RNA: FMN riboswitch aptamer (RFN element)
Organism: Bacillus sp. OK048
RNA sequence: UAAUUCCUUCGGGGUCAGGUGAAAUUCCUAACCGGCGGUGAUGAAGCCUAGCUUCUUAGUCCGUGACCCGGUUAACGUUUGUUAAGCGGUGGAUCUGGUGAAAUUCCAGAGCCGACAGUUAAAGUCUGGAUGGGAGAAGGAAAAA
Numbered sequence: 001u002a003a004u005u006c007c008u009u010c011g012g013g014g015u016c017a018g019g020u021g022a023a024a025u026u027c028c029u030a031a032c033c034g035g036c037g038g039u040g041a042u043g044a045a046g047c048c049u050a051g052c053u054u055c056u057u058a059g060u061c062c063g064u065g066a067c068c069c070g071g072u073u074a075a076c077g078u079u080u081g082u083u084a085a086g087c088g089g090u091g092g093a094u095c096u097g098g099u100g101a102a103a104u105u106c107c108a109g110a111g112c113c114g115a116c117a118g119u120u121a122a123a124g125u126c127u128g129g130a131u132g133g134g135a136g137a138a139g140g141a142a143a144a145a
Stems, first nucleotide, its partner, number of pairs: 004142007017029003031125002033114002035064004059112002068089002094110005116128003